[Rfam]
RNA sequence: UUAAAAAUGAUGAUGGAAAAAAGUAAUUUGGACAGGUCUAAACAAGAGAACAAAUGCCAUAGGUUGAGAGCAUUUGUCUAGACAACCAGAUGAACGUUCACUUCCUGAAUUGACUUUGGGAAUUACUGUUAAGGUAAUGAAAAAAGUUCCGGUAUACGCCGUUAUGUAAAUCAAGUGUGGAUUUGUUUUUUUAUGAAUCUAAACAAGGGUGGUACCGCGAAUCGAAGCCUCGUCCCUUUU
Numbered sequence: 001u002u003a004a005a006a007a008u009g010a011u012g013a014u015g016g017a018a019a020a021a022a023g024u025a026a027u028u029u030g031g032a033c034a035g036g037u038c039u040a041a042a043c044a045a046g047a048g049a050a051c052a053a054a055u056g057c058c059a060u061a062g063g064u065u066g067a068g069a070g071c072a073u074u075u076g077u078c079u080a081g082a083c084a085a086c087c088a089g090a091u092g093a094a095c096g097u098u099c100a101c102u103u104c105c106u107g108a109a110u111u112g113a114c115u116u117u118g119g120g121a122a123u124u125a126c127u128g129u130u131a132a133g134g135u136a137a138u139g140a141a142a143a144a145a146g147u148u149c150c151g152g153u154a155u156a157c158g159c160c161g162u163u164a165u166g167u168a169a170a171u172c173a174a175g176u177g178u179g180g181a182u183u184u185g186u187u188u189u190u191u192u193a194u195g196a197a198u199c200u201a202a203a204c205a206a207g208g209g210u211g212g213u214a215c216c217g218c219g220a221a222u223c224g225a226a227g228c229c230u231c232g233u234c235c236c237u238u239u240u
Stems, first nucleotide, its partner, number of pairs: 007110002015105004026091006039080002050077008112148006150161003178201009206237004217233004

Source information
Rfam assigns this 240-nucleotide sequence from Carnobacterium antarcticum to the family "T-box leader". A search with the family's covariance model found it, with a score of 114 bits. By type it is a cis-regulatory leader. Uncharged tRNA acts as the effector for transcription antitermination of genes in the T-box leader family. T-boxes are found upstream of many aminoacyl-tRNA synthetase genes and some amino acid biosynthetic genes usually in Gram-positive bacteria. The anticodon of a specific tRNA base pairs to a specifier sequence within the T-box motif, and the NCCA acceptor tail of the tRNA base pairs to a conserved bulge in the T-box antiterminator hairpin. Lineage of the source: Bacteria > Bacillati > Bacilli > Lactobacillales > Carnobacterium. The literature on the family includes a 2000 paper in RNA by Grundy et al., "tRNA determinants for transcription antitermination of the Bacillus subtilis tyrS gene".